The family of this 104-nucleotide RNA from Mycobacterium heidelbergense is "mraW RNA". The family's RNA type in Rfam is cis-regulatory element. The organism belongs to Mycobacterium simiae complex, within Bacteria. Pairs were carried over by alignment from the consensus structure, which is taken from published work.
RNA sequence: GCGUGCCCGUGCACCGUGGCCUCUGCCCGAACCGACCCUGGCGUACUUCCCCAACGCCAGGUUCGCGCCCUCGGACAGAGACCUCGGUGCGGGGGUGUCGCUAG
Numbered sequence: 001g002c003g004u005g006c007c008c009g010u011g012c013a014c015c016g017u018g019g020c021c022u023c024u025g026c027c028c029g030a031a032c033c034g035a036c037c038c039u040g041g042c043g044u045a046c047u048u049c050c051c052c053a054a055c056g057c058c059a060g061g062u063u064c065g066c067g068c069c070c071u072c073g074g075a076c077a078g079a080g081a082c083c084u085c086g087g088u089g090c091g092g093g094g095g096u097g098u099c100g101c102u103a104g
Stems, first nucleotide, its partner, number of pairs: 010091007018083002021080005027074004032067001033065003037061008